[Rfam]
RNA sequence: UCGGUUCUGGUUCACGAGACGCACUCCGCGCCCGACCCAGCGGCC
Number, nucleotide and partner (000 for none) at each position: 001u000002c000003g045004g044005u043006u000007c040008u039009g038010g037011u000012u000013c000014a000015c034016g033017a000018g031019a000020c030021g029022c028023a000024c000025u000026c000027c000028g022029c021030g020031c018032c000033c016034g015035a000036c000037c010038c009039a008040g007041c000042g000043g005044c004045c003
RNA: L31-Actinobacteria ribosomal protein leader
Organism: Aeromicrobium massiliense